This 66-nucleotide RNA sequence from Branchiostoma floridae belongs to the Rfam family "mir-8/mir-141/mir-200 microRNA precursor family". The family has 164 seed sequences and 2,669 matches in Rfam 15.1. The family's consensus secondary structure was predicted with RNAalifold.
RNA sequence: UGUGUCAUCUUACCUGGCAGGUUUAGAUGGUUCUGGGAUCUAACACUGUCUGGUAAUGAUGACGGG
Number, nucleotide and partner (000 for none) at each position: 001u000002g000003u064004g063005u062006c061007a060008u059009c058010u056011u055012a054013c053014c052015u000016g050017g049018c048019a047020g046021g044022u000023u043024u042025a041026g040027a039028u000029g000030g000031u000032u000033c000034u000035g000036g000037g000038a000039u027040c026041u025042a024043a023044c021045a000046c020047u019048g018049u017050c016051u000052g014053g013054u012055a011056a010057u000058g009059a008060u007061g006062a005063c004064g003065g000066g000

For this family Rfam cites "Identification of novel genes coding for small expressed RNAs" (Lagos-Quintana et al., Science, 2001).